[Rfam]
RNA sequence: AGGUUAGUGGUUCGUAACCAUCCCACUCAAAAAAACUAGGAGAAU
Numbered sequence: 001a002g003g004u005u006a007g008u009g010g011u012u013c014g015u016a017a018c019c020a021u022c023c024c025a026c027u028c029a030a031a032a033a034a035a036c037u038a039g040g041a042g043a044a045u
Stems, first nucleotide, its partner, number of pairs: 006027005015038002
RNA: PreQ1 (pre queuosine) riboswitch aptamer
Organism: Weissella cibaria